[Rfam]
RNA: dfrA-dnaX RNA
RNA sequence: GCGCCCAAUGGCAAAGCUACUUAUAUUUCAUCAUAACAAGCAUAAAAAAUAAUCAAAAAGGAUUUGUGAUUUUAU
Numbered sequence: 001g002c003g004c005c006c007a008a009u010g011g012c013a014a015a016g017c018u019a020c021u022u023a024u025a026u027u028u029c030a031u032c033a034u035a036a037c038a039a040g041c042a043u044a045a046a047a048a049a050u051a052a053u054c055a056a057a058a059a060g061g062a063u064u065u066g067u068g069a070u071u072u073u074a075u
Stems, first nucleotide, its partner, number of pairs: 030070007